[Rfam]
RNA: MIR6274 microRNA precursor family
Organism: Prunus yedoensis
RNA sequence: UGGUAUCACUUUUUGCUAUCUCCAGCUAAUAACGCAAUGACAUGUAGAAUAACUUUUCCAUAUGUCAUUGUGUUAUUGGCUGAGAAUAGCAAAACAGUGUUAUCC
Numbered sequence: 001u002g003g004u005a006u007c008a009c010u011u012u013u014u015g016c017u018a019u020c021u022c023c024a025g026c027u028a029a030u031a032a033c034g035c036a037a038u039g040a041c042a043u044g045u046a047g048a049a050u051a052a053c054u055u056u057u058c059c060a061u062a063u064g065u066c067a068u069u070g071u072g073u074u075a076u077u078g079g080c081u082g083a084g085a086a087u088a089g090c091a092a093a094a095c096a097g098u099g100u101u102a103u104c105c
Stems, first nucleotide, its partner, number of pairs: 002104004011094009021084001023082023047058003